[Rfam]
RNA sequence: GGAGCGGCUUCUGGAGAGAAUGCAUAUGCAUCGCCGAAGGGUUCAAAAUCUCAGGCAAAAGGACAGAAGAACAACA
Numbered sequence: 001g002g003a004g005c006g007g008c009u010u011c012u013g014g015a016g017a018g019a020a021u022g023c024a025u026a027u028g029c030a031u032c033g034c035c036g037a038a039g040g041g042u043u044c045a046a047a048a049u050c051u052c053a054g055g056c057a058a059a060a061g062g063a064c065a066g067a068a069g070a071a072c073a074a075c076a
Stems, first nucleotide, its partner, number of pairs: 008069006020031004033056003036052002040050003